[Rfam]
RNA sequence: GCUUUUCUGGUGCAGUGGUUCUAAAUAGUUCAACAGUUCUUUAGCUUAAUUGUGAAAUGUUUAGGACCACUUGAUCAGGG
Numbered sequence: 001g002c003u004u005u006u007c008u009g010g011u012g013c014a015g016u017g018g019u020u021c022u023a024a025a026u027a028g029u030u031c032a033a034c035a036g037u038u039c040u041u042u043a044g045c046u047u048a049a050u051u052g053u054g055a056a057a058u059g060u061u062u063a064g065g066a067c068c069a070c071u072u073g074a075u076c077a078g079g080g
Stems, first nucleotide, its partner, number of pairs: 014071006021064002024061004029056004